[Rfam]
RNA: Actinobacteria sRNA Ms_IGR-5
Nucleotides: 228
Base pairs, nucleotide, nucleotide: 014059015058016057017056018055019054060115061114062113063112065110066109068107069106070105071104074102076100133222134221135220136219137218138217139216140215141214142213143212144211145210147171148170149169150168151167152166
Number, partner (000 for none) and nucleotide at each position: 001000a002000c003000a004000c005000g006000u007000g008000a009000a010000a011000g012000g013000a014059g015058g016057u017056g018055g019054u020000c021000c022000a023000g024000a025000a026000g027000a028000u029000g030000c031000a032000u033000u034000c035000u036000u037000a038000c039000c040000g041000g042000a043000c044000u045000u046000g047000u048000g049000a050000g051000g052000u053000g054019g055018c056017u057016g058015c059014c060115c061114g062113c063112u064000a065110g066109c067000a068107g069106c070105u071104u072000c073000c074102c075000u076100g077000c078000c079000g080000a081000c082000a083000g084000g085000a086000u087000u088000c089000a090000c091000u092000g093000c094000g095000c096000a097000g098000c099000g100076u101000u102074g103000c104071a105070a106069g107068c108000g109066g110065c111000c112063a113062g114061c115060g116000a117000a118000u119000u120000c121000a122000a123000g124000g125000c126000a127000g128000u129000c130000a131000c132000c133222c134221g135220a136219c137218c138217c139216g140215c141214a142213g143212g144211c145210g146000c147171u148170u149169c150168c151167g152166g153000a154000c155000u156000u157000u158000u159000u160000g161000g162000u163000c164000c165000g166152c167151c168150g169149g170148a171147a172000g173000a174000c175000g176000a177000c178000g179000a180000g181000a182000a183000g184000g185000u186000c187000c188000c189000c190000u191000c192000g193000g194000g195000g196000a197000a198000a199000c200000c201000g202000u203000u204000c205000g206000u207000c208000a209000a210145c211144g212143c213142c214141u215140g216139c217138g218137g219136g220135u221134c222133g223000u224000u225000c226000c227000c228000a